[Rfam]
RNA sequence: GCCGAGUUAGCUCAGUUGGUAGAGCACGCGACUGAAAAUUGCGGUGUCCACAGUUCGAUUCUGUGACUCGGCA
Numbered sequence: 001g002c003c004g005a006g007u008u009a010g011c012u013c014a015g016u017u018g019g020u021a022g023a024g025c026a027c028g029c030g031a032c033u034g035a036a037a038a039u040u041g042c043g044g045u046g047u048c049c050a051c052a053g054u055u056c057g058a059u060u061c062u063g064u065g066a067c068u069c070g071g072c073a
Base pairs, nucleotide, nucleotide: 001072002071003070004069005068006067007066010025011024012023013022027043028042029041030040031039049065050064051063052062053061
Shown here is a 73-nucleotide RNA sequence from Candidatus Brevifilum fermentans, a member of the family "tRNA". Lineage of the source: Bacteria > Bacillati > Chloroflexota > Anaerolineaceae > Candidatus Brevifilum. The family's RNA type in Rfam is transfer RNA.